[Rfam]
RNA sequence: AUGCCAUGGUGUGGGCACUUCCUCAGCAUCUUCUAUAUCAAUCCCAAGCCUCACACAGAGAUUCUCCAAUUUGCUGAGCAAACUAAGUAAGAGCAUUCCUGAUUGC
Numbered sequence: 001a002u003g004c005c006a007u008g009g010u011g012u013g014g015g016c017a018c019u020u021c022c023u024c025a026g027c028a029u030c031u032u033c034u035a036u037a038u039c040a041a042u043c044c045c046a047a048g049c050c051u052c053a054c055a056c057a058g059a060g061a062u063u064c065u066c067c068a069a070u071u072u073g074c075u076g077a078g079c080a081a082a083c084u085a086a087g088u089a090a091g092a093g094c095a096u097u098c099c100u101g102a103u104u105g106c
Stems, first nucleotide, its partner, number of pairs: 003104001005101002056073002059070001
Shown here is a 106-nucleotide RNA sequence from Apium graveolens, a member of the family "Plant small nucleolar RNA R71".
The family's RNA type in Rfam is C/D-box small nucleolar RNA.
The family has 25 seed sequences and 278,378 matches in Rfam 15.1.